[Rfam]
RNA: Small nucleolar RNA snoR60
RNA sequence: CUGCGUAUGAUGAGUAACUCGGAUUCCCCUUCAGGACAUCUUUGGAUGAUGCAAGCCUGAGAUAUCUGAUGCA
Numbered sequence: 001c002u003g004c005g006u007a008u009g010a011u012g013a014g015u016a017a018c019u020c021g022g023a024u025u026c027c028c029c030u031u032c033a034g035g036a037c038a039u040c041u042u043u044g045g046a047u048g049a050u051g052c053a054a055g056c057c058u059g060a061g062a063u064a065u066c067u068g069a070u071g072c073a
Base pairs, nucleotide, nucleotide: 002073003072004071005070